[Rfam]
RNA sequence: GGAUUCCCGUCGAGCAAGAACUAGCCAUUCACUCGUAGCGAGUCUUGGAGGGCUAAAGGUAACUUUAGUCUUUAAGCGUAGACAGUUAGGUUGCGGGCCGAAAGCCAAUGGUUGAAGGGAUUGAGCCCCAUAAUGUUAGUAAAUCGAGAGGGCUGAUGUUUUAACUGCGACAGAAAGCAACAUUUCAUUCUUCGUAAAUGGCAAGAGGAAUGAAACCUCUCUGGGGUCAGAGACCU
Numbered sequence: 001g002g003a004u005u006c007c008c009g010u011c012g013a014g015c016a017a018g019a020a021c022u023a024g025c026c027a028u029u030c031a032c033u034c035g036u037a038g039c040g041a042g043u044c045u046u047g048g049a050g051g052g053c054u055a056a057a058g059g060u061a062a063c064u065u066u067a068g069u070c071u072u073u074a075a076g077c078g079u080a081g082a083c084a085g086u087u088a089g090g091u092u093g094c095g096g097g098c099c100g101a102a103a104g105c106c107a108a109u110g111g112u113u114g115a116a117g118g119g120a121u122u123g124a125g126c127c128c129c130a131u132a133a134u135g136u137u138a139g140u141a142a143a144u145c146g147a148g149a150g151g152g153c154u155g156a157u158g159u160u161u162u163a164a165c166u167g168c169g170a171c172a173g174a175a176a177g178c179a180a181c182a183u184u185u186c187a188u189u190c191u192u193c194g195u196a197a198a199u200g201g202c203a204a205g206a207g208g209a210a211u212g213a214a215a216c217c218u219c220u221c222u223g224g225g226g227u228c229a230g231a232g233a234c235c236u
Base pairs, nucleotide, nucleotide: 011035012034013033014032018030019029020028022204024202025201038086039085042083043082044081045080046078047077048073049072050071051070052069053068054067055066056065057064058063122230123228125227126226127225128224129223130222146221147220148219149218150217151216152178153177154176157172158171159170160169183215184214185213186212187211188210189209190208191207192206193205